[Rfam]
RNA sequence: UUUAAACACUAGGGGUGUCCAAAAAUGGGCUGAGAUGGUGCUGUAAGUACCGAUCCCUUUGAACCUGUAAGCUCAAACUUGCGUAGGAAAGUGUCACAGCUAAUGU
Numbered sequence: 001u002u003u004a005a006a007c008a009c010u011a012g013g014g015g016u017g018u019c020c021a022a023a024a025a026u027g028g029g030c031u032g033a034g035a036u037g038g039u040g041c042u043g044u045a046a047g048u049a050c051c052g053a054u055c056c057c058u059u060u061g062a063a064c065c066u067g068u069a070a071g072c073u074c075a076a077a078c079u080u081g082c083g084u085a086g087g088a089a090a091g092u093g094u095c096a097c098a099g100c101u102a103a104u105g106u
Base pairs, nucleotide, nucleotide: 006094007093008092009091010090011058012057013056014055016052017030018029019028020027021026037051038050039049040048041047064087065086066085067084069080070079071078

Source information
TPP riboswitch aptamer (THI element): a 106-nucleotide RNA sequence from Lactiplantibacillus plantarum. NCBI's taxonomy places the organism under Bacteria, Bacilli, Lactobacillales, Lactiplantibacillus, Lactiplantibacillus plantarum. The base pairs follow the family's consensus structure, which is taken from published work.